[Rfam]
RNA sequence: UUGAAGGAUUUGAAAACUUUAACUUGCAAACUUGAAUAAUUUGAAGACUUCAAUUUGUAUACUUGGCUGAAUUUAAAGAAAUUUCAAGC
Numbered sequence: 001u002u003g004a005a006g007g008a009u010u011u012g013a014a015a016a017c018u019u020u021a022a023c024u025u026g027c028a029a030a031c032u033u034g035a036a037u038a039a040u041u042u043g044a045a046g047a048c049u050u051c052a053a054u055u056u057g058u059a060u061a062c063u064u065g066g067c068u069g070a071a072u073u074u075a076a077a078g079a080a081a082u083u084u085c086a087a088g089c
Base pairs, nucleotide, nucleotide: 001087002086003085004084005083006082009077010076011075012074013073014072017069019066020065021064025059026058027057028056032053033052034051035050036049
Notes
MIR8024 microRNA precursor family: an 89-nucleotide RNA from Solanum commersonii. The family has 2 seed sequences and 661 matches in Rfam 15.1. The source organism's lineage runs through Eukaryota, Spermatophyta, Mesangiospermae, Solanoideae and Solanum.